[Rfam]
Nucleotides: 117
Stems, first nucleotide, its partner, number of pairs: 011026006027065005038050004077114004082110004087106005
Number, partner (000 for none) and nucleotide at each position: 001000a002000a003000u004000a005000a006000a007000a008000a009000a010000a011026c012025c013024c014023u015022g016021c017000a018000u019000c020000a021016g022015c023014a024013g025012g026011g027065u028064c029063c030062u031061u032000c033000u034000u035000a036000a037000u038050c039049c040048g041047g042000c043000a044000g045000a046000g047041c048040c049039g050038g051000c052000a053000a054000g055000a056000a057000g058000g059000c060000a061031a062030a063029g064028g065027g066000a067000g068000a069000g070000g071000a072000g073000a074000a075000a076000c077114c078113g079112g080111a081000g082110g083109a084108a085107g086000a087106a088105c089104u090103u091102a092000u093000g094000g095000g096000g097000a098000a099000a100000c101000g102091u103090a104089a105088g106087u107085c108084u109083u110082c111080u112079c113078c114077g115000c116000g117000g